[Rfam]
RNA sequence: UCUAUAACUCCAGAUAUGGGCCAAACACUGAACAAUGUUCGGGCUACAGGACAGAUUAAGACUUCUCCAUUGUUGCUAUAAUUUGGAGUUACAAACGACCUUAUUAGAUCUUGGUGUCCACAUGAAAGUUGUAGGCCUAUGUCUUAAUGAAUCUAUGUA
Numbered sequence: 001u002c003u004a005u006a007a008c009u010c011c012a013g014a015u016a017u018g019g020g021c022c023a024a025a026c027a028c029u030g031a032a033c034a035a036u037g038u039u040c041g042g043g044c045u046a047c048a049g050g051a052c053a054g055a056u057u058a059a060g061a062c063u064u065c066u067c068c069a070u071u072g073u074u075g076c077u078a079u080a081a082u083u084u085g086g087a088g089u090u091a092c093a094a095a096c097g098a099c100c101u102u103a104u105u106a107g108a109u110c111u112u113g114g115u116g117u118c119c120a121c122a123u124g125a126a127a128g129u130u131g132u133a134g135g136c137c138u139a140u141g142u143c144u145u146a147a148u149g150a151a152u153c154u155a156u157g158u159a
Base pairs, nucleotide, nucleotide: 003157004156005155006154008149009146012144013143014142015141016140017139018138019137020136021134023132025130027129028128029127035123036122037121041119042118043117048112049111050110051109054105055104056103058101060099063097073087074086
Record summary: Rfam assigns this 159-nucleotide RNA from Populus tomentosa to the family "MIR2912 microRNA precursor family". Its family is annotated with miRNA-mediated post-transcriptional gene silencing and RISC complex in the Gene Ontology. NCBI's taxonomy places the organism under Eukaryota, Streptophytina, Embryophyta, Salicaceae, Populus. The base pairs follow the family's consensus structure, which was predicted with RNAalifold.